[Rfam]
RNA sequence: UAAUUCAAUAGAGGUCGCAAACAAUAGGAAAGCCUGUCGAGCUGGAAGCACAGCUGAGACACAGGCCGGAGGAGCGUUUGCCGAAAGCCUUGAGCCGCUUCAGCUCAGGGUUUGGGCAGGCAGGGGGAACCCUGCUUGACUGUCGCAGGUCUUUUAUAUCCAGGCCUGCGGGGUGCUAUUCUUCCU
Numbered sequence: 001u002a003a004u005u006c007a008a009u010a011g012a013g014g015u016c017g018c019a020a021a022c023a024a025u026a027g028g029a030a031a032g033c034c035u036g037u038c039g040a041g042c043u044g045g046a047a048g049c050a051c052a053g054c055u056g057a058g059a060c061a062c063a064g065g066c067c068g069g070a071g072g073a074g075c076g077u078u079u080g081c082c083g084a085a086a087g088c089c090u091u092g093a094g095c096c097g098c099u100u101c102a103g104c105u106c107a108g109g110g111u112u113u114g115g116g117c118a119g120g121c122a123g124g125g126g127g128a129a130c131c132c133u134g135c136u137u138g139a140c141u142g143u144c145g146c147a148g149g150u151c152u153u154u155u156a157u158a159u160c161c162a163g164g165c166c167u168g169c170g171g172g173g174u175g176c177u178a179u180u181c182u183u184c185c186u
Stems, first nucleotide, its partner, number of pairs: 007180005017081006025073001032066006085113011114141002117138008143171010
RNA: Lysine riboswitch aptamer
Organism: Lactococcus termiticola